[Rfam]
RNA sequence: GAGCCAGCCAAUGAGUCUGCUUACCUGAAUGUGUUUCUGCAAAAAGGUUAGAGAAAGCUGGCAAUAGUAAAGACAUGUUAUAAGCCUUAAAGAUAUUCAAGUCAUUAAGGAACCUGAAAAUGGCUAUAAAA
Numbered sequence: 001g002a003g004c005c006a007g008c009c010a011a012u013g014a015g016u017c018u019g020c021u022u023a024c025c026u027g028a029a030u031g032u033g034u035u036u037c038u039g040c041a042a043a044a045a046g047g048u049u050a051g052a053g054a055a056a057g058c059u060g061g062c063a064a065u066a067g068u069a070a071a072g073a074c075a076u077g078u079u080a081u082a083a084g085c086c087u088u089a090a091a092g093a094u095a096u097u098c099a100a101g102u103c104a105u106u107a108a109g110g111a112a113c114c115u116g117a118a119a120a121u122g123g124c125u126a127u128a129a130a131a
Stems, first nucleotide, its partner, number of pairs: 003062005016043001018041003072124001074122002085110006092103003
Overview:
Rfam assigns this 131-nucleotide RNA sequence from Pipistrellus kuhlii to the family "Small nucleolar RNA SNORA33". The family's consensus secondary structure was predicted with PFOLD. The family's RNA type in Rfam is H/ACA-box small nucleolar RNA. Taxonomically the source falls in Pipistrellus (Eukaryota, Teleostomi, Euteleostomi, Yangochiroptera).